This 45-nucleotide RNA from Brachybacterium phenoliresistens belongs to the Rfam family "Guanidine-II riboswitch aptamer (mini-ykkC)". It scores 45 bits against the family's covariance model. The family's consensus secondary structure is taken from published work. Rfam links the family to the GO term regulation of gene expression. The source organism's lineage runs through Bacteria, Actinomycetes, Micrococcales, Dermabacteraceae and Brachybacterium.

[Rfam]
RNA sequence: CGGCCGGGACGACCCGGCCGGGCACGGCAUGCAGGGACGACCCUG
Numbered sequence: 001c002g003g004c005c006g007g008g009a010c011g012a013c014c015c016g017g018c019c020g021g022g023c024a025c026g027g028c029a030u031g032c033a034g035g036g037a038c039g040a041c042c043c044u045g
Base pairs, nucleotide, nucleotide: 001020002019003018004017005016006015007014008013032045033044034043035042036041